Source information: The family of this 177-nucleotide RNA from Herbinix luporum is "6S / SsrS RNA".
RNA sequence: AUGUUCCUGAGAUGUUCGACACUCCUGUAAUUUUGAACCUACAUGUUGUAAUAAGGGUUUCCUACAUUUAUUGGUGGAUGUCAAGCCGCCUAGUAGCGGAAGGCAGAAGCUGAUAUGCGGUUACCCACCUAGCGAAGCUAGGAGUCAAAAUGCAGGAAACGGCAUUUUGGGGGUUUA
Number, nucleotide and partner (000 for none) at each position: 001a000002u000003g174004u173005u172006c171007c170008u169009g168010a167011g166012a165013u164014g163015u162016u000017c161018g160019a000020c000021a000022c000023u000024c000025c000026u000027g000028u000029a000030a000031u000032u150033u149034u147035g146036a145037a000038c142039c141040u000041a000042c000043a000044u000045g000046u000047u000048g000049u000050a000051a000052u000053a000054a000055g126056g125057g124058u000059u000060u000061c120062c119063u000064a000065c000066a116067u000068u000069u115070a114071u113072u112073g111074g110075u109076g000077g000078a000079u000080g000081u103082c102083a000084a000085g000086c099087c098088g097089c096090c000091u000092a000093g000094u000095a000096g089097c088098g087099g086100a000101a000102g082103g081104c000105a000106g000107a000108a000109g075110c074111u073112g072113a071114u070115a069116u066117g000118c000119g062120g061121u000122u000123a000124c057125c056126c055127a000128c000129c000130u000131a000132g000133c000134g000135a000136a000137g000138c000139u000140a000141g039142g038143a000144g000145u036146c035147a034148a000149a033150a032151u000152g000153c000154a000155g000156g000157a000158a000159a000160c018161g017162g015163c014164a013165u012166u011167u010168u009169g008170g007171g006172g005173g004174u003175u000176u000177a000
E. coli 6S RNA was the first non coding RNA to be sequenced, but its function was unknown until recently. The organism belongs to Herbinix, within Bacteria.